[Rfam]
Overview: A member of the RNA family "Arthropod 7SK RNA" from Callosobruchus maculatus, 262 nucleotides long. Rfam 15.1 lists 229 matches to the family in 137 species. It scores 103 bits against the family's covariance model. For this family Rfam cites "Arthropod 7SK RNA" (Gruber et al., Mol Biol Evol, 2008). The base pairs follow the family's consensus structure, which is taken from published work.
RNA sequence: GGAGGUGUGUGUCAGUGAUGGCACGCUGAACAUCGAUCGCUCGGUGAAUGGUAGCAGAUCUGGUCAGUAAGUGCAGUCACGGCUCAGGUCGAUCCAGCAACCAAUGAGAUGCCACCGACGCCUCGUCGCUCGGCCCGGCAUCCGUGGUUUCUUGAACGUCCGCCAUUUCCAAAUUUUGGGGGGUCACGGAUGUGGGUUUAUUUCAUUUAAGACACCUCCAAAUAUAGGCACUGCACGCCUGAAAGCAGUAUGCCAUUUUUUG
Numbered sequence: 001g002g003a004g005g006u007g008u009g010u011g012u013c014a015g016u017g018a019u020g021g022c023a024c025g026c027u028g029a030a031c032a033u034c035g036a037u038c039g040c041u042c043g044g045u046g047a048a049u050g051g052u053a054g055c056a057g058a059u060c061u062g063g064u065c066a067g068u069a070a071g072u073g074c075a076g077u078c079a080c081g082g083c084u085c086a087g088g089u090c091g092a093u094c095c096a097g098c099a100a101c102c103a104a105u106g107a108g109a110u111g112c113c114a115c116c117g118a119c120g121c122c123u124c125g126u127c128g129c130u131c132g133g134c135c136c137g138g139c140a141u142c143c144g145u146g147g148u149u150u151c152u153u154g155a156a157c158g159u160c161c162g163c164c165a166u167u168u169c170c171a172a173a174u175u176u177u178g179g180g181g182g183g184u185c186a187c188g189g190a191u192g193u194g195g196g197u198u199u200a201u202u203u204c205a206u207u208u209a210a211g212a213c214a215c216c217u218c219c220a221a222a223u224a225u226a227g228g229c230a231c232u233g234c235a236c237g238c239c240u241g242a243a244a245g246c247a248g249u250a251u252g253c254c255a256u257u258u259u260u261u262g
Stems, first nucleotide, its partner, number of pairs: 001219008015080005026067003031062002035060004039055003042050001227254003230249005